[Rfam]
RNA sequence: GAUAAUGCGAGUGAAAAACUCGCACGCCGAAAGAUCAAGGUUUCCUGUUCAACGUUAAUCGGAGCAGGGUGAGUCGGCCCCUAAGGCGAGGCUGAAGAGCGUAGUCGAUGGGAAACAGGUUAAUAUUCCUGUACUUCAAUACAGUGCGAAGGGGGGACGGAGAAGGCUAGGUGAUCCGGGCGUUGGUAGUCCCGGUUUAAGCGUGUAGGCUGAGUGUUUAGGAAAAUCCGGACACUCACUAAGGCUGAGGCGUAAUGACGGUGAUCCCACGGGAUCCGAAGUCACUGAUGCCAUGCUUCCAGGAAAAGCCUCUAAGCUCCAGCUGUAUUGGAACCGUACUCCAAACCGACACAGGUGAUCAGGUAGAGAAUACCAAGGCGCU
Dot-bracket structure: .....((((((.......))))))((((....((((..((...((((((...((.....)).))))))......(((..((...(((.(.(((....))).).)))...))...(((((........)))))..(((((((((((((..(((((....((((..(((..(((((.(((((..........))))).((..((((...(((..(((((((.((.....))))))))).......)))...))))...))....(((((....))))).....)))))...)))...)))).........)))))..))....))))))))))).)))..)).....((......)).)))).((((.....))))..))))..
The record is a 382-nucleotide part of an RNA from Reinekea forsetii, which matches "Bacterial large subunit ribosomal RNA" in Rfam.